[Rfam]
RNA: c-di-AMP riboswitch aptamer (ydaO/yuaA leader)
Organism: Fontibacillus panacisegetis
RNA sequence: AAAUAUAAAAGGCCGAAUUUCAAUAUUGAAAACGGGGGAACCGAUCAACAGGGGUGAAUUUCGUAUCUUCGUGACAUAAUGUAUUAUGUCUGGCGAAGACAUGAAUAGGGCAAACCGUGCAUGCCCGAAUCCGUCAGCUAACCUCGUAGGCCAAAGUGGCAGGGACC
Numbered sequence: 001a002a003a004u005a006u007a008a009a010a011g012g013c014c015g016a017a018u019u020u021c022a023a024u025a026u027u028g029a030a031a032a033c034g035g036g037g038g039a040a041c042c043g044a045u046c047a048a049c050a051g052g053g054g055u056g057a058a059u060u061u062c063g064u065a066u067c068u069u070c071g072u073g074a075c076a077u078a079a080u081g082u083a084u085u086a087u088g089u090c091u092g093g094c095g096a097a098g099a100c101a102u103g104a105a106u107a108g109g110g111c112a113a114a115c116c117g118u119g120c121a122u123g124c125c126c127g128a129a130u131c132c133g134u135c136a137g138c139u140a141a142c143c144u145c146g147u148a149g150g151c152c153a154a155a156g157u158g159g160c161a162g163g164g165a166c167c
Base pairs, nucleotide, nucleotide: 011152012151013150014149018031019030020029032147033146034145035144036143037142042051052132053131054130060105061104062103063102108126109125110124111123